This 394-nucleotide RNA from Qingshengfaniella alkalisoli belongs to the Rfam family "Bacterial RNase P class A". It scores 310 bits against the family's covariance model. Lineage of the source: Bacteria > Pseudomonadati > Pseudomonadota > Alphaproteobacteria > Qingshengfaniella. By type it is a ribozyme.

[Rfam]
RNA sequence: GCGGAUAGCCGGAUGAUCGCGGCAGGGCGACCUGUCGAGGAAAGUCCGGACUCCAUGAAGCAACGGUGCCGGGUAACGCCCGGCCGGGGAAACCCGAGGGAAAGCGCCACAGAGAACAAACCGCCAGACGGAUAGGUUGGUCUUUACCGAUACCUCCGAAGGCAAGGGUGAAACGGUGGGGUAAGAGCCCACCGCGGGACUGGCAACAGGACCGGCACGGCAAGCCCCACCGGGAGCAAUGCCAAAUAGGGACCUCGUGCGGUGAUCCGCAGGGCGGCUUCAGCCCAGAGGUCCGGGUUGGCAGCUAGAGCGCGUCGGCAACGGCGGGCCCAGAUGAAUGAUCAUCCACGACCUUGUGUCGGGACAGAAUCCGGCUUACAGGCUAUCCGCACAU
Numbered sequence: 001g002c003g004g005a006u007a008g009c010c011g012g013a014u015g016a017u018c019g020c021g022g023c024a025g026g027g028c029g030a031c032c033u034g035u036c037g038a039g040g041a042a043a044g045u046c047c048g049g050a051c052u053c054c055a056u057g058a059a060g061c062a063a064c065g066g067u068g069c070c071g072g073g074u075a076a077c078g079c080c081c082g083g084c085c086g087g088g089g090a091a092a093c094c095c096g097a098g099g100g101a102a103a104g105c106g107c108c109a110c111a112g113a114g115a116a117c118a119a120a121c122c123g124c125c126a127g128a129c130g131g132a133u134a135g136g137u138u139g140g141u142c143u144u145u146a147c148c149g150a151u152a153c154c155u156c157c158g159a160a161g162g163c164a165a166g167g168g169u170g171a172a173a174c175g176g177u178g179g180g181g182u183a184a185g186a187g188c189c190c191a192c193c194g195c196g197g198g199a200c201u202g203g204c205a206a207c208a209g210g211a212c213c214g215g216c217a218c219g220g221c222a223a224g225c226c227c228c229a230c231c232g233g234g235a236g237c238a239a240u241g242c243c244a245a246a247u248a249g250g251g252a253c254c255u256c257g258u259g260c261g262g263u264g265a266u267c268c269g270c271a272g273g274g275c276g277g278c279u280u281c282a283g284c285c286c287a288g289a290g291g292u293c294c295g296g297g298u299u300g301g302c303a304g305c306u307a308g309a310g311c312g313c314g315u316c317g318g319c320a321a322c323g324g325c326g327g328g329c330c331c332a333g334a335u336g337a338a339u340g341a342u343c344a345u346c347c348a349c350g351a352c353c354u355u356g357u358g359u360c361g362g363g364a365c366a367g368a369a370u371c372c373g374g375c376u377u378a379c380a381g382g383c384u385a386u387c388c389g390c391a392c393a394u
Stems, first nucleotide, its partner, number of pairs: 001390010011379001012346007020037007042377003046374005051236004060280001064232005069083005084098001085096004099227002104225002106221003121167002123163003129158004175193006194216001195214003200209003240303004250294006272286004310329002313326005